[Rfam]
RNA sequence: CGCUUGAAACCAGUAUUUAAACAUGAAUUUCAAUUCACCAUGUGGUGAGUCUAUAUUUGAUGAUUAGAGUCAACGAGGGUUUGACAAGUGAUAAAAACGGCUAGAGUAGACCUAUUAGGACAAAGUCUAGUCAAAUGUCACGGGUUGGACUUUUUUUAGUGUAAUGUAUAACAUGUCUUGUUUUGACUGUGGUGGUGUUGAAAUGCAUGCAGAUCAAUGACACUCCAACAAAUCAAUUCAUACUUACCCACCACAAAAACGUUGAGGAAAUGGUUUUAAACGACCCGUCUUGAAACACGG
Number, nucleotide and partner (000 for none) at each position: 001c282002g281003c000004u279005u278006g277007a276008a275009a274010c273011c272012a271013g000014u000015a000016u000017u067018u066019a065020a064021a000022c062023a061024u060025g000026a000027a000028u000029u000030u000031c000032a000033a000034u000035u000036c000037a000038c000039c000040a000041u000042g000043u000044g000045g000046u000047g000048a000049g000050u000051c000052u000053a000054u000055a000056u000057u000058u000059g000060a024061u023062g022063a000064u020065u019066a018067g017068a000069g000070u000071c264072a263073a262074c261075g260076a000077g000078g000079g000080u000081u000082u000083g000084a000085c000086a000087a000088g000089u000090g000091a000092u000093a000094a000095a000096a000097a000098c000099g000100g000101c000102u000103a000104g000105a000106g000107u000108a000109g000110a000111c000112c000113u000114a000115u000116u000117a000118g000119g000120a000121c000122a000123a000124a000125g000126u000127c000128u000129a000130g000131u000132c000133a000134a000135a000136u000137g000138u000139c000140a000141c000142g000143g000144g000145u000146u000147g000148g000149a000150c000151u000152u000153u000154u000155u000156u000157u000158a000159g000160u000161g000162u000163a000164a000165u000166g000167u000168a000169u000170a000171a000172c000173a000174u000175g000176u000177c000178u000179u000180g000181u000182u000183u000184u000185g000186a000187c000188u000189g000190u000191g000192g000193u000194g000195g000196u000197g000198u000199u000200g000201a000202a000203a000204u000205g000206c000207a000208u000209g000210c000211a000212g000213a000214u000215c000216a000217a000218u000219g000220a000221c000222a000223c000224u000225c000226c000227a000228a000229c000230a000231a000232a000233u000234c000235a000236a000237u000238u000239c000240a000241u000242a000243c000244u000245u000246a000247c000248c000249c000250a000251c000252c000253a000254c000255a000256a000257a000258a000259a000260c075261g074262u073263u072264g071265a000266g000267g000268a000269a000270a000271u012272g011273g010274u009275u008276u007277u006278a005279a004280a000281c002282g001283a000284c000285c300286c299287g298288u297289c000290u000291u000292g000293a000294a000295a000296c000297a288298c287299g286300g285